[Rfam]
RNA: Potassium channel RNA editing signal
RNA sequence: GUGGGAUAUGGGGACAUGUACCCCGUCACCAUUGGUGGAAAGAUUGUGGGUUCUCUGUGUGCUAUCGCCGGUGUGCUGACCAUCGCUUUGCCGGUGCCCGUCAUCGUGUCCAAC
Numbered sequence: 001g002u003g004g005g006a007u008a009u010g011g012g013g014a015c016a017u018g019u020a021c022c023c024c025g026u027c028a029c030c031a032u033u034g035g036u037g038g039a040a041a042g043a044u045u046g047u048g049g050g051u052u053c054u055c056u057g058u059g060u061g062c063u064a065u066c067g068c069c070g071g072u073g074u075g076c077u078g079a080c081c082a083u084c085g086c087u088u089u090g091c092c093g094g095u096g097c098c099c100g101u102c103a104u105c106g107u108g109u110c111c112a113a114c
Stems, first nucleotide, its partner, number of pairs: 001114002004111002007108005013102003018097004037077002040074001049063003